[Rfam]
RNA sequence: GCCGUUCAGUGAUGAGACGCGGAAUGAGCGCUGGGCACAGCGCCCGAGCCACACAGUGCGGAAGCAUUCCAGCUGCCUUCCUUCUGAGAACGGC
Numbered sequence: 001g002c003c004g005u006u007c008a009g010u011g012a013u014g015a016g017a018c019g020c021g022g023a024a025u026g027a028g029c030g031c032u033g034g035g036c037a038c039a040g041c042g043c044c045c046g047a048g049c050c051a052c053a054c055a056g057u058g059c060g061g062a063a064g065c066a067u068u069c070c071a072g073c074u075g076c077c078u079u080c081c082u083u084c085u086g087a088g089a090a091c092g093g094c
Base pairs, nucleotide, nucleotide: 001094002093003092004091005090
This 94-nucleotide RNA from Sorex araneus belongs to the Rfam family "Small nucleolar RNA U83B". The family has 21 seed sequences and 966 matches in Rfam 15.1. The literature on the family includes a 2000 paper in Biochim Biophys Acta by Duga et al., "The intron-containing L3 ribosomal protein gene (RPL3): sequence analysis and identification of U43 and of two novel intronic small nucleolar RNAs". The pairing is the family consensus, mapped onto this sequence. Rfam describes the family as follows. U83B belongs to the C/D family of snoRNAs. U83B like U83A has no documented RNA target and they share the same host gene with the C/D box snoRNA U43 (RPL3). N.B. U83A/B/C have no sequence similarity with the U83 snoRNA that was cloned by Jady and Kiss (2000). The sequence is in the family's curated seed alignment. NCBI's taxonomy places the organism under Eukaryota, Boreoeutheria, Laurasiatheria, Soricinae, Sorex.